Shown here is a 55-nucleotide sequence from Esox lucius, a member of the family "U7 small nuclear RNA". A search with the family's covariance model found it, with a score of 45 bits. Lineage of the source: Eukaryota > Euteleostomi > Actinopteri > Teleostei > Esox.

RNA sequence: AAACGUAUGCGCUUUUAGUAUUUGUCCAGUAGGUUUUCUCAUUGAGAAAGCCCCC
Numbered sequence: 001a002a003a004c005g006u007a008u009g010c011g012c013u014u015u016u017a018g019u020a021u022u023u024g025u026c027c028a029g030u031a032g033g034u035u036u037u038c039u040c041a042u043u044g045a046g047a048a049a050g051c052c053c054c055c
Stems, first nucleotide, its partner, number of pairs: 032052008
Dot-bracket structure: ...............................((((((((.....))))))))...